RNA sequence: AUAAAACGCUAGGGGCGCAUUUGCUGAGAUGAUCUUUUGAUCAACCCUUUUUACCUGAUCAGGUUAAUACCUGCGUAGGGAAGCAAUAUAAGUAAGUA
Number, nucleotide and partner (000 for none) at each position: 001a000002u000003a000004a000005a000006a000007c000008g084009c083010u082011a048012g047013g046014g045015g000016c000017g024018c023019a000020u000021u000022u000023g018024c017025u000026g000027a000028g000029a000030u000031g042032a041033u040034c039035u000036u000037u000038u000039g034040a033041u032042c031043a000044a000045c014046c013047c012048u011049u000050u000051u000052u000053a000054c079055c078056u077057g076058a000059u000060c073061a072062g071063g070064u000065u000066a000067a000068u000069a000070c063071c062072u061073g060074c000075g000076u057077a056078g055079g054080g000081a000082a010083g009084c008085a000086a000087u000088a000089u000090a000091a000092g000093u000094a000095a000096g000097u000098a000

Shown here is a 98-nucleotide RNA sequence from Oribacterium sp. C9, a member of the family "TPP riboswitch aptamer (THI element)". The match comes from Rfam's covariance-model search (70 bits).